[Rfam]
RNA sequence: CUGGUCUGUCAGCCUCUUUACGGUGCUGCCUUGUGGAAUCUGGAUCAAGCAGCAUUGUACAGGGCUAUGAGAGACCCG
Dot-bracket structure: .............((((.((((((((((.((((............)))))))))))))).))))..............